Shown here is a 46-nucleotide sequence from Pseudonaja textilis, a member of the family "Histone 3' UTR stem-loop".
RNA sequence: AAAAAGGCUCUUUUAAGAGCCAUCAAAUAAUCCAAAAAAAGUGCUG
Numbered sequence: 001a002a003a004a005a006g007g008c009u010c011u012u013u014u015a016a017g018a019g020c021c022a023u024c025a026a027a028u029a030a031u032c033c034a035a036a037a038a039a040a041g042u043g044c045u046g
Stems, first nucleotide, its partner, number of pairs: 006021006

The match comes from Rfam's covariance-model search (41 bits). The mRNAs of metazoan histone genes lack a poly-A tail. 3' end processing occurs at a site between a highly conserved stem-loop (modelled by this family) and a purine rich region around 20 nts downstream (the histone downstream element, or HDE). The stem-loop is bound by a 31 kDa stem-loop binding protein (SLBP - also termed the histone hairpin binding protein, or HBP). Together with U7 snRNA binding of the HDE, SLBP binding nucleate s the formation of the processing complex. The histone 3' UTR stem-loop is also involved in nucleocytoplasmic transport of the mRNA, and in stability regulation and translation efficiency in the cytoplasm.